The family of this 91-nucleotide RNA from Cryptotermes secundus is "mir-317 microRNA precursor family".
For this family Rfam cites "Systematic discovery and characterization of fly microRNAs using 12 Drosophila genomes" (Stark et al., Genome Res, 2007).
Lineage of the source: Eukaryota > Protostomia > Arthropoda > Dictyoptera > Cryptotermes.
RNA sequence: UCUGGUGUGGAACGGGGAGCCACUCUGAGUUCACUCGGAAUAUUUGAUGCGAGUGAACACAGCUGGUGGUAUCUCAGUUGCAUGUCAGACA
Numbered sequence: 001u002c003u004g005g006u007g008u009g010g011a012a013c014g015g016g017g018a019g020c021c022a023c024u025c026u027g028a029g030u031u032c033a034c035u036c037g038g039a040a041u042a043u044u045u046g047a048u049g050c051g052a053g054u055g056a057a058c059a060c061a062g063c064u065g066g067u068g069g070u071a072u073c074u075c076a077g078u079u080g081c082a083u084g085u086c087a088g089a090c091a
Stems, first nucleotide, its partner, number of pairs: 008082002010079002015075001016073002019070002022067003025062003029058001031056002